[Rfam]
RNA sequence: GCAGACUCACUAUGCACCUGACUGUACUUCCAGGCAGGUGCUUUUUCUGUCUGCCAGAGAAACAUUCCAGGGUGCUGUGGCUGCCUCACCUAUCCAGGGCGAUGCAGCUCCCUGGGGACACAGGU
Numbered sequence: 001g002c003a004g005a006c007u008c009a010c011u012a013u014g015c016a017c018c019u020g021a022c023u024g025u026a027c028u029u030c031c032a033g034g035c036a037g038g039u040g041c042u043u044u045u046u047c048u049g050u051c052u053g054c055c056a057g058a059g060a061a062a063c064a065u066u067c068c069a070g071g072g073u074g075c076u077g078u079g080g081c082u083g084c085c086u087c088a089c090c091u092a093u094c095c096a097g098g099g100c101g102a103u104g105c106a107g108c109u110c111c112c113u114g115g116g117g118a119c120a121c122a123g124g125u
Stems, first nucleotide, its partner, number of pairs: 001054006014041007022033003066116007074108006082101005
This 125-nucleotide sequence belongs to the Rfam family "Small nucleolar RNA SNORA77". Its family is annotated with nucleolus and RNA processing in the Gene Ontology. About the family: ACA63 (SNORA77) is a member of the H/ACA class of snoRNAs that guide the sites of modification of uridines to pseudouridines. This snoRNA was identified by computational screening and its expression in mouse experimentally verified by Northern blot and primer extension analysis. ACA63 is proposed to guide the pseudouridylation of 18S rRNA U814. Rfam classes the family as an H/ACA-box small nucleolar RNA. It is one of the family's seed sequences.